[Rfam]
RNA sequence: CAGAUAACAGGAAAUGGUGUCUUCCUGACCCAAACCGUCAGCCCAGGGCUGUCUGAUGGCGCCUACAAAUAU
Numbered sequence: 001c002a003g004a005u006a007a008c009a010g011g012a013a014a015u016g017g018u019g020u021c022u023u024c025c026u027g028a029c030c031c032a033a034a035c036c037g038u039c040a041g042c043c044c045a046g047g048g049c050u051g052u053c054u055g056a057u058g059g060c061g062c063c064u065a066c067a068a069a070u071a072u
Stems, first nucleotide, its partner, number of pairs: 010025004016063006037053001039051004
This 72-nucleotide RNA from Chitinophaga ginsengisegetis belongs to the Rfam family "Fluoride riboswitch aptamer (crcB RNA motif)". The family has 289 seed sequences and 2,293 matches in Rfam 15.1.